[Rfam]
This 88-nucleotide sequence from Ureibacillus manganicus belongs to the Rfam family "BsrC". From the family's description: The 301 nucleotide sequence from Kouji Nakamura has been trimmed to a highly conserved ~85 nucleotide long core to form this family. NCBI's taxonomy places the organism under Bacteria, Bacillota, Caryophanales, Ureibacillus, Ureibacillus manganicus. It scores 60 bits against the family's covariance model.
Nucleotides: 088
Stems, first nucleotide, its partner, number of pairs: 036067002040063002043058005
Number, partner (000 for none) and nucleotide at each position: 001000u002000c003000u004000a005000a006000c007000u008000u009000a010000a011000g012000c013000a014000a015000u016000g017000c018000a019000a020000a021000c022000c023000c024000a025000a026000c027000c028000u029000a030000c031000u032000u033000u034000u035000g036067c037066a038000u039000c040063c041062u042000u043058g044057c045056a046055a047054g048000c049000c050000u051000u052000u053000a054047c055046u056045u057044g058043c059000u060000c061000c062041a063040g064000u065000a066037u067036g068000a069000a070000u071000a072000a073000g074000u075000g076000u077000c078000u079000u080000c081000a082000a083000a084000a085000a086000c087000a088000u